[Rfam]
RNA: Plastid-psbN 5UTR RNA
Organism: Corymbia citriodora
RNA sequence: UACGACACCCAUCAAAGGAGCAAUUCCUCAUCCAUGAGCUACUUUAUCAUAUUCUGAAUUU
Numbered sequence: 001u002a003c004g005a006c007a008c009c010c011a012u013c014a015a016a017g018g019a020g021c022a023a024u025u026c027c028u029c030a031u032c033c034a035u036g037a038g039c040u041a042c043u044u045u046a047u048c049a050u051a052u053u054c055u056g057a058a059u060u061u
Stems, first nucleotide, its partner, number of pairs: 017045004022040001024038003